[Rfam]
RNA sequence: CUUCUUGUGCCUUUGGGACCUUCUGGCUCUGGUAGUCUUUCUUCCUAGCUGUUGAAGAGCAUGUCCUUGUUUAUUGGCAAUGCUAUAUUAGAUUCUGUCUUGCACAAGUAACAUUC
Dot-bracket structure: .((..((.......((((.((.((......)).))..))))........))..))............((((..(((((((..(((...)))........)))).)))..))))...

Small nucleolar RNA SNORA24: a 116-nucleotide RNA from Peromyscus maniculatus. Taxonomically the source falls in Peromyscus maniculatus (Eukaryota, Chordata, Euarchontoglires, Glires). The family's consensus secondary structure was predicted with RNAfold. Its family is annotated with RNA processing and nucleolus in the Gene Ontology. It is annotated as an H/ACA-box small nucleolar RNA. The match comes from Rfam's covariance-model search (86 bits).